Group II catalytic intron D1-D4-6: a 230-nucleotide sequence from Eubacterium plexicaudatum. Taxonomically the source falls in Eubacterium plexicaudatum (Bacteria, Clostridia, Eubacteriales, Eubacterium). Group II introns are found in rRNA, tRNA and mRNA of organelles in fungi, plants and protists, and also in mRNA in bacteria. Pairs were carried over by alignment from the consensus structure. The match comes from Rfam's covariance-model search (62 bits).

[Rfam]
RNA sequence: GGAAUCCAGUCUGGUAAGACUUAGCAGGUCGCCAGUACCGAGUCCUUGAAGCGCCAACGGCUAACAAUGGUGUUUAAGCGUAGGACAGGGAACAGGAACGCCGUAAUGCGAAAGCGUGAAGCGAUUGAGCUUCGUCAGAAUUAUCGAUUGUGUGGGGUGGUCUGCUACCUCCUUGGGUCACCAAUAAGGAUUAGUCGCUAAGCGAGACUAUGAAAACACACUCUAGAGCA
Numbered sequence: 001g002g003a004a005u006c007c008a009g010u011c012u013g014g015u016a017a018g019a020c021u022u023a024g025c026a027g028g029u030c031g032c033c034a035g036u037a038c039c040g041a042g043u044c045c046u047u048g049a050a051g052c053g054c055c056a057a058c059g060g061c062u063a064a065c066a067a068u069g070g071u072g073u074u075u076a077a078g079c080g081u082a083g084g085a086c087a088g089g090g091a092a093c094a095g096g097a098a099c100g101c102c103g104u105a106a107u108g109c110g111a112a113a114g115c116g117u118g119a120a121g122c123g124a125u126u127g128a129g130c131u132u133c134g135u136c137a138g139a140a141u142u143a144u145c146g147a148u149u150g151u152g153u154g155g156g157g158u159g160g161u162c163u164g165c166u167a168c169c170u171c172c173u174u175g176g177g178u179c180a181c182c183a184a185u186a187a188g189g190a191u192u193a194g195u196c197g198c199u200a201a202g203c204g205a206g207a208c209u210a211u212g213a214a215a216a217c218a219c220a221c222u223c224u225a226g227a228g229c230a
Stems, first nucleotide, its partner, number of pairs: 011035004018030004022205001024203002038089002042086001044084003047080002049075008059065001129229004134224001150223001152221003155217001156182003161176002164173001191212001192210005